[Rfam]
RNA sequence: GAUCGCAGUGAGGACUUCAAAAGAUCAAGCUCAACAGACCGGAUCGCAGGAGCUUCUCCAAGUCGAGAGCUUUUGCAUGUCGAUUCAAUCUUCAUCCCUGAGCGAUC
Numbered sequence: 001g002a003u004c005g006c007a008g009u010g011a012g013g014a015c016u017u018c019a020a021a022a023g024a025u026c027a028a029g030c031u032c033a034a035c036a037g038a039c040c041g042g043a044u045c046g047c048a049g050g051a052g053c054u055u056c057u058c059c060a061a062g063u064c065g066a067g068a069g070c071u072u073u074u075g076c077a078u079g080u081c082g083a084u085u086c087a088a089u090c091u092u093c094a095u096c097c098c099u100g101a102g103c104g105a106u107c
Stems, first nucleotide, its partner, number of pairs: 001107006

This 107-nucleotide sequence from Cuscuta campestris belongs to the Rfam family "Small nucleolar RNA Z107/R87". Rfam links the family to the GO terms nucleolus and RNA processing. Rfam classes the family as a C/D-box small nucleolar RNA. For this family Rfam cites "Identification of 66 box C/D snoRNAs in Arabidopsis thaliana: extensive gene duplications generated multiple isoforms predicting new ribosomal RNA 2'-O-methylation sites" (Barneche et al., J Mol Biol, 2001). Taxonomically the source falls in Cuscuta sect. Cleistogrammica (Eukaryota, Streptophyta, Magnoliopsida, Cuscuta subgen. Grammica).